[Rfam]
This 37-nucleotide RNA sequence from Frankia casuarinae belongs to the Rfam family "CRISPR RNA direct repeat element".

RNA sequence: GCAGCGCCGGGCGUCCGCGCCCGGCGAGGUUCCCAAC
Numbered sequence: 001g002c003a004g005c006g007c008c009g010g011g012c013g014u015c016c017g018c019g020c021c022c023g024g025c026g027a028g029g030u031u032c033c034c035a036a037c
Stems, first nucleotide, its partner, number of pairs: 005026009